[Rfam]
RNA sequence: CUGGAGAAUUGCUCUAUGAGCAAUAAUCUAGACUACAUGUAGAUUUAUAGUGCAUUUUAGAUUUCUAAAAAUGCCAGUAAAAUACAGCAAAGAUAAUUAGUAGAUUAUUUGAAAAUUAAAUUUGCAGUGCAACAGAAAAUCUGUUUUAGUAAAUCUGCUACUUUAA
Numbered sequence: 001c002u003g004g005a006g007a008a009u010u011g012c013u014c015u016a017u018g019a020g021c022a023a024u025a026a027u028c029u030a031g032a033c034u035a036c037a038u039g040u041a042g043a044u045u046u047a048u049a050g051u052g053c054a055u056u057u058u059a060g061a062u063u064u065c066u067a068a069a070a071a072u073g074c075c076a077g078u079a080a081a082a083u084a085c086a087g088c089a090a091a092g093a094u095a096a097u098u099a100g101u102a103g104a105u106u107a108u109u110u111g112a113a114a115a116u117u118a119a120a121u122u123u124g125c126a127g128u129g130c131a132a133c134a135g136a137a138a139a140u141c142u143g144u145u146u147u148a149g150u151a152a153a154u155c156u157g158c159u160a161c162u163u164u165a166a
Base pairs, nucleotide, nucleotide: 001031002030003029004028005027008024009023010022011021012020013019014018039158040157041156042155043154044153045152046151047150048149055134057132058131087125088124089123090122091121094118095117096116097115098114103110104109
RNA: RT-16 RNA